[Rfam]
The family of this 120-nucleotide RNA from Thermacetogenium phaeum is "Molybdenum/Tungsten riboswitch aptamer (Moco RNA motif)".
For this family Rfam cites "in molybdenum cofactor and tungsten cofactor metabolism" (Regulski et al., Mol Microbiol, 2008).
Lineage of the source: Bacteria > Bacillota > Clostridia > Thermacetogenium > Thermacetogenium phaeum.
Pairs were carried over by alignment from the consensus structure, which is taken from published work.
RNA sequence: AUUAAUUCAAUUCUCCGAGUUCACCGUCCUGUGGCAGUUUGCUAUGGCGGUCGAACCGAUAGGGUGUACCUGGAAACGGGUGCGCCUCCCAGUGCGGAAAGGAGACUACGGCAAAAGCGU
Numbered sequence: 001a002u003u004a005a006u007u008c009a010a011u012u013c014u015c016c017g018a019g020u021u022c023a024c025c026g027u028c029c030u031g032u033g034g035c036a037g038u039u040u041g042c043u044a045u046g047g048c049g050g051u052c053g054a055a056c057c058g059a060u061a062g063g064g065u066g067u068a069c070c071u072g073g074a075a076a077c078g079g080g081u082g083c084g085c086c087u088c089c090c091a092g093u094g095c096g097g098a099a100a101g102g103a104g105a106c107u108a109c110g111g112c113a114a115a116a117g118c119g120u
Stems, first nucleotide, its partner, number of pairs: 003114001006111001012105005019056004025050001028047002033043004062087011088097002